[Rfam]
RNA sequence: CUCUGUGGUUUUAAAAAUCCCAGGGCGAAAAGAG
Numbered sequence: 001c002u003c004u005g006u007g008g009u010u011u012u013a014a015a016a017a018u019c020c021c022a023g024g025g026c027g028a029a030a031a032g033a034g
Base pairs, nucleotide, nucleotide: 001025002024003023004022005021008018009017010016
RNA: L31-Firmicutes ribosomal protein leader
Organism: Lepisosteus oculatus